[Rfam]
RNA sequence: GCAAAAGCGGUUAAUGGAAGCAUUAACGUUAAGGCAUACACUAAUGCUAAUGUACGUGGAAGUAUUUUUCUGGUAACCAUAGCGAUCUCCUGGGAUGCAAGGCUAUUAAUUAAGCCGCCUUCUUUUGUUUUUAUUAAAUAUUGAAAUGCAAUUUAAAUGCCAGAGGCAACUUUAAGACAACCAGUUCAGCGGAGAAACCGCUUUUCCUCUUUGUCUUAUUUCAAAGUAUAGACCGUUUUGUUUAAUACCGCCGCUGUGGCCU
Number, nucleotide and partner (000 for none) at each position: 001g206002c000003a204004a203005a202006a000007g201008c200009g199010g198011u197012u196013a000014a000015u000016g104017g103018a000019a000020g098021c097022a096023u095024u094025a000026a000027c000028g090029u000030u000031a000032a000033g048034g047035c046036a045037u044038a000039c000040a000041c000042u000043a000044a037045u036046g035047c034048u033049a000050a071051u000052g069053u000054a066055c000056g000057u000058g000059g000060a000061a000062g000063u000064a000065u000066u054067u000068u000069u052070c000071u050072g000073g000074u000075a000076a000077c000078c000079a000080u000081a000082g000083c000084g000085a000086u000087c000088u000089c000090c028091u000092g000093g000094g024095a023096u022097g021098c020099a000100a000101g000102g000103c017104u016105a000106u175107u174108a173109a172110u000111u168112a000113a000114g167115c166116c165117g000118c000119c163120u162121u000122c000123u000124u000125u000126u000127g160128u159129u000130u157131u156132u155133a000134u000135u000136a000137a000138a000139u000140a000141u000142u000143g000144a000145a000146a000147u000148g000149c000150a000151a000152u000153u000154u000155a132156a131157a130158u000159g128160c127161c000162a120163g119164a000165g116166g115167c114168a111169a000170c000171u000172u109173u108174a107175a106176g187177a185178c184179a000180a000181c000182c000183a000184g178185u177186u000187c176188a000189g000190c000191g000192g000193a000194g000195a000196a012197a011198c010199c009200g008201c007202u005203u004204u003205u000206c001207c000208u000209c226210u225211u224212u223213g222214u000215c000216u000217u000218a000219u000220u000221u000222c213223a212224a211225a210226g209227u000228a000229u000230a000231g000232a255233c000234c253235g252236u000237u000238u000239u250240g249241u000242u000243u000244a000245a000246u000247a000248c000249c240250g239251c000252c235253g234254c000255u232256g000257u000258g000259g000260c000261c000262u000

Legionella RNA 17: a 262-nucleotide RNA from Legionella shakespearei.
On this family, see Weissenmayer et al., PLoS One 2011: "Sequencing illustrates the transcriptional response of Legionella pneumophila during infection and identifies seventy novel small non-coding RNAs".
Rfam describes the family as follows. Identified by strand specific sequencing of the transcriptional response during broth growth and during infection inside the host.